The family of this 87-nucleotide sequence from Actinomadura harenae is "ZMP/ZTP riboswitch aptamer (pfl RNA motif)".
A search with the family's covariance model found it, with a score of 47 bits.
RNA sequence: UGUGCGGGACGCGACUGGCGCAGGCAAGGUGGAUUCGACCACCGGGGAGCGACGACGGUCCGGCCACCGCGCGCCUGGGUGGACGGA
Numbered sequence: 001u002g003u004g005c006g007g008g009a010c011g012c013g014a015c016u017g018g019c020g021c022a023g024g025c026a027a028g029g030u031g032g033a034u035u036c037g038a039c040c041a042c043c044g045g046g047g048a049g050c051g052a053c054g055a056c057g058g059u060c061c062g063g064c065c066a067c068c069g070c071g072c073g074c075c076u077g078g079g080u081g082g083a084c085g086g087a
Stems, first nucleotide, its partner, number of pairs: 003058001008053001010051003015046002017075005029042004064082005
The family's consensus secondary structure is taken from published work.